[Rfam]
RNA sequence: CUGUCUGGCUGAAUUAGUGAUCGGCCGGACCAAACUUAGGAGAAUGUUAUGUCACUAACUAAAGCAGAAACUGCAAAUAUCAUCGCUGAAUACGCAGUUAAAGAG
Numbered sequence: 001c002u003g004u005c006u007g008g009c010u011g012a013a014u015u016a017g018u019g020a021u022c023g024g025c026c027g028g029a030c031c032a033a034a035c036u037u038a039g040g041a042g043a044a045u046g047u048u049a050u051g052u053c054a055c056u057a058a059c060u061a062a063a064g065c066a067g068a069a070a071c072u073g074c075a076a077a078u079a080u081c082a083u084c085g086c087u088g089a090a091u092a093c094g095c096a097g098u099u100a101a102a103g104a105g
Stems, first nucleotide, its partner, number of pairs: 007026006037058001039056002042053001
Shown here is a 105-nucleotide RNA sequence from Alteromonas sp. KUL49, a member of the family "Ribosomal S15 leader". The E. coli Ribosomal S15 gene 5' UTR can form two alternative structures. One that is a series of three hairpins, The other includes a pseudoknot. This structure causes translational regulation of the S15 protein. The alignment of this family contains only the final two hairpins which are conserved in other species, and also includes the complete region that forms the alternate structures. A reference for the family is Benard et al. (1996), "Pseudoknot and translational control in the expression of the S15 ribosomal protein", Biochimie. The base pairs follow the family's consensus structure, which is taken from published work. Rfam links the family to the GO term regulation of translation, ncRNA-mediated.